[Rfam]
RNA sequence: AGCCUAACCCUAUAAAUCUAUAGGUAUGGUCAAAAGACCCAACGAAGAUACUAAACCACACGUUUAGCAACUCUUCGUUGGGCUAUAUCUGGAAACAGGUAUAGGAUCGUAAGACC
Numbered sequence: 001a002g003c004c005u006a007a008c009c010c011u012a013u014a015a016a017u018c019u020a021u022a023g024g025u026a027u028g029g030u031c032a033a034a035a036g037a038c039c040c041a042a043c044g045a046a047g048a049u050a051c052u053a054a055a056c057c058a059c060a061c062g063u064u065u066a067g068c069a070a071c072u073c074u075u076c077g078u079u080g081g082g083c084u085a086u087a088u089c090u091g092g093a094a095a096c097a098g099g100u101a102u103a104g105g106a107u108c109g110u111a112a113g114a115c116c
Base pairs, nucleotide, nucleotide: 002030003029004028009024010023011022012021013020014019038082039081040080041079042078043077044076045075046074047073048072049069051067052066053065054064055063056062084103085102086101087100088099089098090097091096104116105115107114108113
RNA: LOOT RNA